Rfam assigns this 200-nucleotide RNA sequence from Polynucleobacter sp. MWH-Adler-W8 to the family "carA ncRNA motif". The literature on the family includes a 2021 paper in RNA Biol by Brewer et al., "Comprehensive discovery of novel structured noncoding RNAs in 26 bacterial genomes". carA ncRNA motif was reported as a Strong Riboswitch Candidate CarA ncRNA motif was located upstream of carA gene which codes for the small subunit of carbamoyl phosphate synthase, which is an enzyme that catalyses the first committed step in pyrimidine and arginine biosynthesis. Its family is annotated with regulation of gene expression in the Gene Ontology.

RNA sequence: GGGAGCUUUUUACCUUCCAGCCCCCAUUUGGCUGUAUAUCCAAGGGUUUACGAGCAAAAAUGUUAUGAUUGCAAGGUUCGAAACUUAAUAAAUACCCUAGCGCUUAAAGACACUCACCACCCGCAAAAAUAUCCCCGGGCUAGUCUUUUGUGGGGUUUUGAGCGUCGGAUGGAGCAGGGACUGGAGAUGGUUUGUCACCC
Dot-bracket structure: ...............(..((((.......))))..).(((....))).............(..((....))..)....................((((...((((...(((.((((...(((...(.((...(.........)....)).).)))...)))).))).....)))))))).....................
The family's RNA type in Rfam is cis-regulatory element.